Annotation: This 100-nucleotide RNA sequence from Solanum commersonii belongs to the Rfam family "Small nucleolar RNA R30/Z108". The family is grouped with related families in Rfam's "SNORD100 clan". It is annotated as a C/D-box small nucleolar RNA. About the family: snoR30 is a C/D box small nucleolar RNA which acts as a methylation guide for 18S ribosomal RNA in plants. The base pairs follow the family's consensus structure, which was predicted with PFOLD. The match comes from Rfam's covariance-model search (83 bits).

RNA sequence: UGAGAUCGUGAUGAGGAUAUCUAAGCUCCCUCUUCUGAUAUCGGUGAGGAAAAUUGCUGGCAGAAUCGAACCAAUAAAUUAAUUUGCCAUUACUGAAUGA
Numbered sequence: 001u002g003a004g005a006u007c008g009u010g011a012u013g014a015g016g017a018u019a020u021c022u023a024a025g026c027u028c029c030c031u032c033u034u035c036u037g038a039u040a041u042c043g044g045u046g047a048g049g050a051a052a053a054u055u056g057c058u059g060g061c062a063g064a065a066u067c068g069a070a071c072c073a074a075u076a077a078a079u080u081a082a083u084u085u086g087c088c089a090u091u092a093c094u095g096a097a098u099g100a
Base pairs, nucleotide, nucleotide: 006100007099008098009097